[Rfam]
RNA: ZMP/ZTP riboswitch aptamer (pfl RNA motif)
Organism: Nocardioides sp. GY 10113
RNA sequence: UUCGAGCCACACGACUGGCGCAGGUGGGGGACCACCGGGGAGUGACGAGCCGGCAUCGACCGCCUGGGUGCCCCUC
Numbered sequence: 001u002u003c004g005a006g007c008c009a010c011a012c013g014a015c016u017g018g019c020g021c022a023g024g025u026g027g028g029g030g031a032c033c034a035c036c037g038g039g040g041a042g043u044g045a046c047g048a049g050c051c052g053g054c055a056u057c058g059a060c061c062g063c064c065u066g067g068g069u070g071c072c073c074c075u076c
Base pairs, nucleotide, nucleotide: 003049006046010044011043012042015039016038017064018063019062020061024035025034026033027032053071054070055069056068057067